[Rfam]
RNA sequence: GGGGCUGAUUCUGGAUUCGACAAGAUUCACGAAACCCAAGGUGCAUGCCGAGGUGCGGUAGGCCUCGCUAAUAAACCGCAAAAAAAUAGUCGCAAACGACGAAAACUACGCACUGGCAGCUUAAUAACCUGCGCAGAGCCCUUCUACCCUAGCAUGCCUGUGUCCUAGGGAAUCGGAAGGUCAUCCUUCACAGGAUCGUGUGGAAGUCCUGCUCGGGGCGGAAGCAUUAAAACCAAUCGAGCUAGUCAAUUCGUGGCGUGUCUCUCCGCAGCGGGUUGGCGAAUGUAAAGAGUGACUAAGCAUGUAGUGCCAAGGAUGUAGUAAUUUUGGACGGGGGUUCAAAUCCCCCCAGCUCCACCA
Numbered sequence: 001g002g003g004g005c006u007g008a009u010u011c012u013g014g015a016u017u018c019g020a021c022a023a024g025a026u027u028c029a030c031g032a033a034a035c036c037c038a039a040g041g042u043g044c045a046u047g048c049c050g051a052g053g054u055g056c057g058g059u060a061g062g063c064c065u066c067g068c069u070a071a072u073a074a075a076c077c078g079c080a081a082a083a084a085a086a087u088a089g090u091c092g093c094a095a096a097c098g099a100c101g102a103a104a105a106c107u108a109c110g111c112a113c114u115g116g117c118a119g120c121u122u123a124a125u126a127a128c129c130u131g132c133g134c135a136g137a138g139c140c141c142u143u144c145u146a147c148c149c150u151a152g153c154a155u156g157c158c159u160g161u162g163u164c165c166u167a168g169g170g171a172a173u174c175g176g177a178a179g180g181u182c183a184u185c186c187u188u189c190a191c192a193g194g195a196u197c198g199u200g201u202g203g204a205a206g207u208c209c210u211g212c213u214c215g216g217g218g219c220g221g222a223a224g225c226a227u228u229a230a231a232a233c234c235a236a237u238c239g240a241g242c243u244a245g246u247c248a249a250u251u252c253g254u255g256g257c258g259u260g261u262c263u264c265u266c267c268g269c270a271g272c273g274g275g276u277u278g279g280c281g282a283a284u285g286u287a288a289a290g291a292g293u294g295a296c297u298a299a300g301c302a303u304g305u306a307g308u309g310c311c312a313a314g315g316a317u318g319u320a321g322u323a324a325u326u327u328u329g330g331a332c333g334g335g336g337g338u339u340c341a342a343a344u345c346c347c348c349c350c351a352g353c354u355c356c357a358c359c360a
Stems, first nucleotide, its partner, number of pairs: 001356007021329007034317001036315002040311003044304005049067005054080006113136003116132004140180006149170002159194001161192003198227004211242005245280010256269003260296003264292003333349005
RNA: transfer-messenger RNA
Organism: Aeromonas hydrophila